Description
The family of this 507-nucleotide part of an RNA from Phytophthora infestans is "Eukaryotic large subunit ribosomal RNA".
RNA sequence: CCCUCCGAAAUUUCCCUCAGGAUAGCAGCAACUUAUUUACGAUAGUUUUAUGAGGUAAAGCGAAUGAUUAGAGGAUUCGGGGAAGAAACUUCCUCGACCUAUUCUCAAACUUUAAAUCUGUAAGACCUGCAGGUUUCUUAAUUGAACUUGUGGAUGUGAAUAUCAAGUUGCUAGUGGGCCAUACGGGGUAAGCUCGUCUGGCGAUGCGGGAUGAACCGAACGCAAAGUUAAAGUGCCAAAAUGCUCGCUCACCUAGAUACCAUAAAAGGUGUUGGUUCAUUUAGACAGCAGGACGGUGGCCAUGGAAGUCGGAAUCCGCUAAGGAGUGUGUAACAACUCACCUGCCGAAUGAACUAGCCCUGAAAAUGGAUGGCGCUAAAGCGGGCUACUUAUACUUUGCCGUUAGCGCGAUAGCAUUUAUAAUGUACGCGUUAAUGAGUAGGAGGGCGUGAAGGUCGUGAAGAAGCUCGUGGCGUGAGCCUGAGUGAAACGGCCUUUAGUGCAGAU
Numbered sequence: 001c002c003c004u005c006c007g008a009a010a011u012u013u014c015c016c017u018c019a020g021g022a023u024a025g026c027a028g029c030a031a032c033u034u035a036u037u038u039a040c041g042a043u044a045g046u047u048u049u050a051u052g053a054g055g056u057a058a059a060g061c062g063a064a065u066g067a068u069u070a071g072a073g074g075a076u077u078c079g080g081g082g083a084a085g086a087a088a089c090u091u092c093c094u095c096g097a098c099c100u101a102u103u104c105u106c107a108a109a110c111u112u113u114a115a116a117u118c119u120g121u122a123a124g125a126c127c128u129g130c131a132g133g134u135u136u137c138u139u140a141a142u143u144g145a146a147c148u149u150g151u152g153g154a155u156g157u158g159a160a161u162a163u164c165a166a167g168u169u170g171c172u173a174g175u176g177g178g179c180c181a182u183a184c185g186g187g188g189u190a191a192g193c194u195c196g197u198c199u200g201g202c203g204a205u206g207c208g209g210g211a212u213g214a215a216c217c218g219a220a221c222g223c224a225a226a227g228u229u230a231a232a233g234u235g236c237c238a239a240a241a242u243g244c245u246c247g248c249u250c251a252c253c254u255a256g257a258u259a260c261c262a263u264a265a266a267a268g269g270u271g272u273u274g275g276u277u278c279a280u281u282u283a284g285a286c287a288g289c290a291g292g293a294c295g296g297u298g299g300c301c302a303u304g305g306a307a308g309u310c311g312g313a314a315u316c317c318g319c320u321a322a323g324g325a326g327u328g329u330g331u332a333a334c335a336a337c338u339c340a341c342c343u344g345c346c347g348a349a350u351g352a353a354c355u356a357g358c359c360c361u362g363a364a365a366a367u368g369g370a371u372g373g374c375g376c377u378a379a380a381g382c383g384g385g386c387u388a389c390u391u392a393u394a395c396u397u398u399g400c401c402g403u404u405a406g407c408g409c410g411a412u413a414g415c416a417u418u419u420a421u422a423a424u425g426u427a428c429g430c431g432u433u434a435a436u437g438a439g440u441a442g443g444a445g446g447g448c449g450u451g452a453a454g455g456u457c458g459u460g461a462a463g464a465a466g467c468u469c470g471u472g473g474c475g476u477g478a479g480c481c482u483g484a485g486u487g488a489a490a491c492g493g494c495c496u497u498u499a500g501u502g503c504a505g506a507u
Base pairs, nucleotide, nucleotide: 001447002446003445004444005443006442011024013022014021015020027172028171029170030169031168032167033166046125047124048123049122050121051120052119058113059111060110065107066106067105070102072100073099074098077097078096079095080094081093082092084090127153128152129151130150131149132148133147134146135145178202179201180200181199183197184196185195186194187193207218208217209216222400223399224398225397226396228394232390233389234388241387243386246383247382248381267361268360269359271358272357273356274355275354276353277352278351279350280349288345289344290343291342292341294318295317296316300312301311319323324339328337329336401437402436403435404434405433406432407431408430409429448502450499451498452497453496454495455494456493457492458491459490466486467485472481473480474479

NCBI's taxonomy places the organism under Eukaryota, Sar, Oomycota, Peronosporomycetes, Phytophthora infestans. Pairs were carried over by alignment from the consensus structure, which is taken from published work.